Record summary
Shown here is a 60-nucleotide RNA, a member of the family "pemK RNA". By type it is a cis-regulatory element. The family's consensus secondary structure is taken from published work.
[Rfam]
RNA sequence: AUAAUGAUACUUCCGGCGACGGCUGUCCCAUAGGAAUGGGCAGAGGUGAAACUCCUAUGC
Numbered sequence: 001a002u003a004a005u006g007a008u009a010c011u012u013c014c015g016g017c018g019a020c021g022g023c024u025g026u027c028c029c030a031u032a033g034g035a036a037u038g039g040g041c042a043g044a045g046g047u048g049a050a051a052c053u054c055c056u057a058u059g060c
Stems, first nucleotide, its partner, number of pairs: 012057001013022003023043003027039002044056003